[Rfam]
RNA sequence: GAUAUUUGGGUUCCUAGCAUUCAUUUAUUACUUCUGGAAUUUUAGACCCAGAAAGAUACAACUAUACAAGCCAGAGAGCCAGUCAGAGGGCGCUACCAUGCAAACUAGGGCUGGCUACUCUUGCACAGAAUCACAUCUCGAUAAUUGUCAGUGCAAGAAGGACAAUUAUACCAUUUAAUGUGUCGAGGCCACGCGGAGUACGAUCGAGGGUACAGCACAAUCUCAACUUUUGUUGAAACUUAACUACAUCCUAUAUGGAGAAGGAACAAAGGACUGUACUACUUUGUAGGUGCAGCAGUCGCCCAGUGGGAGAGCGCCAUAUAGUAUGUUGUUGAGCGGGGAACAAAUUAGGGGAAAUUAAAUUGGCUUAUAAGGGGGAUGGAGC
Numbered sequence: 001g002a003u004a005u006u007u008g009g010g011u012u013c014c015u016a017g018c019a020u021u022c023a024u025u026u027a028u029u030a031c032u033u034c035u036g037g038a039a040u041u042u043u044a045g046a047c048c049c050a051g052a053a054a055g056a057u058a059c060a061a062c063u064a065u066a067c068a069a070g071c072c073a074g075a076g077a078g079c080c081a082g083u084c085a086g087a088g089g090g091c092g093c094u095a096c097c098a099u100g101c102a103a104a105c106u107a108g109g110g111c112u113g114g115c116u117a118c119u120c121u122u123g124c125a126c127a128g129a130a131u132c133a134c135a136u137c138u139c140g141a142u143a144a145u146u147g148u149c150a151g152u153g154c155a156a157g158a159a160g161g162a163c164a165a166u167u168a169u170a171c172c173a174u175u176u177a178a179u180g181u182g183u184c185g186a187g188g189c190c191a192c193g194c195g196g197a198g199u200a201c202g203a204u205c206g207a208g209g210g211u212a213c214a215g216c217a218c219a220a221u222c223u224c225a226a227c228u229u230u231u232g233u234u235g236a237a238a239c240u241u242a243a244c245u246a247c248a249u250c251c252u253a254u255a256u257g258g259a260g261a262a263g264g265a266a267c268a269a270a271g272g273a274c275u276g277u278a279c280u281a282c283u284u285u286g287u288a289g290g291u292g293c294a295g296c297a298g299u300c301g302c303c304c305a306g307u308g309g310g311a312g313a314g315c316g317c318c319a320u321a322u323a324g325u326a327u328g329u330u331g332u333u334g335a336g337c338g339g340g341g342a343a344c345a346a347a348u349u350a351g352g353g354g355a356a357a358u359u360a361a362a363u364u365g366g367c368u369u370a371u372a373a374g375g376g377g378g379a380u381g382g383a384g385c
Stems, first nucleotide, its partner, number of pairs: 036059001038057001040055004073121004077116008087106002092101002134381006141169009171366003174362006180218004188211003192206002194202002229347006239336006246329002251324008272300006279289004302310003
Shown here is a 385-nucleotide RNA sequence from Deltacoronavirus lonchurae, a member of the family "Deltacoronavirus 3'UTR".
Its Rfam clan is "Coronavirus 3' UTR".
Gene Ontology term of the family: viral RNA genome replication.
The source organism's lineage runs through Viruses, Riboviria, Orthornavirae, Cornidovirineae and Munia coronavirus HKU13.
There are two smaller hairpins and the hypervariable region (HVR) present in the 3' UTR of deltacoronaviruses. The pseudoknot structure which is typical for alpha- and betacoronaviruses has not been predicted in deltacoronaviruses thus far.
Rfam's curators put it in the seed alignment.
Rfam classes the family as a cis-regulatory element.
A reference for the family is Goebel et al. (2004), "The 3' cis-acting genomic replication element of the severe acute respiratory syndrome coronavirus can function in the murine coronavirus genome", J Virol.